[Rfam]
RNA sequence: UUCUGGAGCCCUUCAUUCCACCGGAAUCUGUCGACACGGAAACCAGAUUUCAGUGAAAUGAAGCCCGUCAGAGA
Numbered sequence: 001u002u003c004u005g006g007a008g009c010c011c012u013u014c015a016u017u018c019c020a021c022c023g024g025a026a027u028c029u030g031u032c033g034a035c036a037c038g039g040a041a042a043c044c045a046g047a048u049u050u051c052a053g054u055g056a057a058a059u060g061a062a063g064c065c066c067g068u069c070a071g072a073g074a
Stems, first nucleotide, its partner, number of pairs: 011063006019055003023051004028046003